[Rfam]
RNA sequence: UGACCCCGUGCGGGAGAGCCCUCCGGCGAGCUCCCUGAGUUCUCGGCGGGCGCCGAAGGAGCAACUCCUCCCCGGAAUCUCUCAGGCCCACGGACCGCACGGACGAG
Numbered sequence: 001u002g003a004c005c006c007c008g009u010g011c012g013g014g015a016g017a018g019c020c021c022u023c024c025g026g027c028g029a030g031c032u033c034c035c036u037g038a039g040u041u042c043u044c045g046g047c048g049g050g051c052g053c054c055g056a057a058g059g060a061g062c063a064a065c066u067c068c069u070c071c072c073c074g075g076a077a078u079c080u081c082u083c084a085g086g087c088c089c090a091c092g093g094a095c096c097g098c099a100c101g102g103a104c105g106a107g
Stems, first nucleotide, its partner, number of pairs: 006102008020050003052087003055083002059081003065075002
RNA: Glycine riboswitch aptamer